A member of the RNA family "rne-II RNA" from Pseudomonas guineae, 272 nucleotides long.

RNA sequence: AUACGUGUAGGGUGGAGACGUACAACUGUUGGUCCGCGUAGCAGCUCGCUUUACCAAGACGCUUCAUCUCGUCCGCUACCAACAGCUGAUUCCUCCUCCUGACUUAGUGCUUUCUGUUAUUUACAGCGAGCAGGAGACGUCUGUCGCGGCCCAGCACAACAGGCUGAUAGUCGCUAGACACUGGAACGCUUUACGACCGUUCCUGACGCACCUAACACCGACCCCUGAAGUCGUGUGUGCCGAACGCCGCUUCCGCCAGCACCGGAAACCGA
Numbered sequence: 001a002u003a004c005g006u007g008u009a010g011g012g013u014g015g016a017g018a019c020g021u022a023c024a025a026c027u028g029u030u031g032g033u034c035c036g037c038g039u040a041g042c043a044g045c046u047c048g049c050u051u052u053a054c055c056a057a058g059a060c061g062c063u064u065c066a067u068c069u070c071g072u073c074c075g076c077u078a079c080c081a082a083c084a085g086c087u088g089a090u091u092c093c094u095c096c097u098c099c100u101g102a103c104u105u106a107g108u109g110c111u112u113u114c115u116g117u118u119a120u121u122u123a124c125a126g127c128g129a130g131c132a133g134g135a136g137a138c139g140u141c142u143g144u145c146g147c148g149g150c151c152c153a154g155c156a157c158a159a160c161a162g163g164c165u166g167a168u169a170g171u172c173g174c175u176a177g178a179c180a181c182u183g184g185a186a187c188g189c190u191u192u193a194c195g196a197c198c199g200u201u202c203c204u205g206a207c208g209c210a211c212c213u214a215a216c217a218c219c220g221a222c223c224c225c226u227g228a229a230g231u232c233g234u235g236u237g238u239g240c241c242g243a244a245c246g247c248c249g250c251u252u253c254c255g256c257c258a259g260c261a262c263c264g265g266a267a268a269c270c271g272a
Stems, first nucleotide, its partner, number of pairs: 014096004023088002026085007036076003040050003058073004097135005138208004143179003146174004152166004183203006215238004219233004249269001251267005
It scores 225 bits against the family's covariance model. The source organism's lineage runs through Bacteria, Pseudomonadota, Pseudomonadales, Pseudomonadaceae and Pseudomonas. By type it is a cis-regulatory element.